Background: Shown here is a 90-nucleotide RNA sequence from Aneurinibacillus migulanus, a member of the family "c-di-GMP-I riboswitch aptamer". Pairs were carried over by alignment from the consensus structure, which is taken from published work.

[Rfam]
RNA sequence: UUAAGAAAAAGGCAAACUCGUUGAAAGGCGAGGACGCAAAGCCACGGGUCUAAAGCUGCAUGCUGCAGCUAUGACAGCCGGGUUGCCAAA
Numbered sequence: 001u002u003a004a005g006a007a008a009a010a011g012g013c014a015a016a017c018u019c020g021u022u023g024a025a026a027g028g029c030g031a032g033g034a035c036g037c038a039a040a041g042c043c044a045c046g047g048g049u050c051u052a053a054a055g056c057u058g059c060a061u062g063c064u065g066c067a068g069c070u071a072u073g074a075c076a077g078c079c080g081g082g083u084u085g086c087c088a089a090a
Stems, first nucleotide, its partner, number of pairs: 012037002017032006040084004045080003048075003055069004